The record is a 211-nucleotide RNA sequence from Clostridium baratii, which matches "raiA RNA" in Rfam.
Rfam classes the family as a riboswitch.
Pairs were carried over by alignment from the consensus structure, which is taken from published work.
RNA sequence: UAAAGUUAGGUCUGUGGUUGAAAGUCGAUGCUAGUCGCAGGCAAAACGAUCCACUUAAGCUAGGCAAAGAUUCUAGUGAGCAUGGUGCGGUAUAGAAGUAAGUCCUACCAGGCAUUAAAGCUUGAGAGGGUUAGUAGUGAGAGGUUAAUUCCGGGUAGCGAAAUCUCCAGUAGGCGAGUGUGGGGGCAAAAACCAGUGUCAGCUAACUUUA
Numbered sequence: 001u002a003a004a005g006u007u008a009g010g011u012c013u014g015u016g017g018u019u020g021a022a023a024g025u026c027g028a029u030g031c032u033a034g035u036c037g038c039a040g041g042c043a044a045a046a047c048g049a050u051c052c053a054c055u056u057a058a059g060c061u062a063g064g065c066a067a068a069g070a071u072u073c074u075a076g077u078g079a080g081c082a083u084g085g086u087g088c089g090g091u092a093u094a095g096a097a098g099u100a101a102g103u104c105c106u107a108c109c110a111g112g113c114a115u116u117a118a119a120g121c122u123u124g125a126g127a128g129g130g131u132u133a134g135u136a137g138u139g140a141g142a143g144g145u146u147a148a149u150u151c152c153g154g155g156u157a158g159c160g161a162a163a164u165c166u167c168c169a170g171u172a173g174g175c176g177a178g179u180g181u182g183g184g185g186g187c188a189a190a191a192a193c194c195a196g197u198g199u200c201a202g203c204u205a206a207c208u209u210u211a
Base pairs, nucleotide, nucleotide: 001211002210003209004208005207006206007205008204009203012202013201014200015195016194017193018192019191028181029180030179031041034091035090036089037088038087039086050085051084055080058077063072064071083188104174105173106172107171108170109124110123111122112121113120128167129166130165137159138158143152144151